[Rfam]
RNA: mir-16 microRNA precursor family
Organism: Origma solitaria
RNA sequence: GCCACGCUGAAGCAGCACAAUAAUAUUGGGGUUGAAGGUUUAUUUCACGCCAAUAUUUACGUGCUGCUAGGGCGGAAC
Numbered sequence: 001g002c003c004a005c006g007c008u009g010a011a012g013c014a015g016c017a018c019a020a021u022a023a024u025a026u027u028g029g030g031g032u033u034g035a036a037g038g039u040u041u042a043u044u045u046c047a048c049g050c051c052a053a054u055a056u057u058u059a060c061g062u063g064c065u066g067c068u069a070g071g072g073c074g075g076a077a078c
Base pairs, nucleotide, nucleotide: 001078005074006073007072011068012067013066014065015064016063017062018061020058022057023056024055025054026053027052028051029050